The record is a 90-nucleotide sequence from Zingiber officinale, which matches "Small nucleolar RNA snoR26" in Rfam.
A search with the family's covariance model found it, with a score of 76 bits.
RNA sequence: CGAGCAUCAGUGAUGUAAAAUCUCAUUCGUUAUCCUUGCACUUUGAUUGCCCGUGAAGAUAAAUGUGGGGAAAUUAAUACUGAGAUGUUC
Numbered sequence: 001c002g003a004g005c006a007u008c009a010g011u012g013a014u015g016u017a018a019a020a021u022c023u024c025a026u027u028c029g030u031u032a033u034c035c036u037u038g039c040a041c042u043u044u045g046a047u048u049g050c051c052c053g054u055g056a057a058g059a060u061a062a063a064u065g066u067g068g069g070g071a072a073a074u075u076a077a078u079a080c081u082g083a084g085a086u087g088u089u090c
Stems, first nucleotide, its partner, number of pairs: 002090007